[Rfam]
RNA sequence: AAAAACUGCAUAGUUAUGCCACAGACAGCAGGUUGUAUUAAGAUACGUAAAGGCAAAGUUUGUCUUCCUGCCGAGGUAUAGGUUUGAUACGAUGGAUUAUUACUAAUCCCCUCUAUGUCUGUGUGCAUACAGGGGAUUUUUAAUUUUUGU
Number, nucleotide and partner (000 for none) at each position: 001a000002a000003a000004a000005a000006c000007u000008g000009c000010a000011u000012a000013g000014u000015u000016a000017u000018g000019c000020c000021a000022c000023a000024g000025a000026c000027a000028g071029c070030a069031g068032g067033u000034u000035g046036u045037a044038u000039u000040a000041a000042g000043a000044u037045a036046c035047g000048u000049a000050a000051a000052g000053g000054c000055a000056a000057a000058g000059u000060u000061u000062g000063u000064c000065u000066u000067c032068c031069u030070g029071c028072c000073g000074a000075g000076g000077u000078a000079u000080a000081g000082g000083u000084u000085u000086g000087a000088u000089a000090c000091g000092a000093u000094g000095g000096a000097u000098u000099a000100u000101u000102a000103c000104u000105a000106a000107u000108c135109c134110c133111c132112u131113c000114u129115a128116u127117g126118u000119c000120u000121g000122u000123g000124u000125g000126c117127a116128u115129a114130c000131a112132g111133g110134g109135g108136a000137u000138u000139u000140u000141u000142a000143a000144u000145u000146u000147u000148u000149g000150u000

The record is a 150-nucleotide RNA from Acetivibrio saccincola, which matches "Ribosomal protein L10 leader" in Rfam. From the family's description: This family is a putative r-protein leader autoregulatory structure found in B. subtilis and other low-GC Gram-positive bacteria. Lineage of the source: Bacteria > Bacillota > Clostridia > Acetivibrionales > Acetivibrio. It is annotated as a cis-regulatory leader. Its family is annotated with regulation of gene expression in the Gene Ontology. It scores 63 bits against the family's covariance model.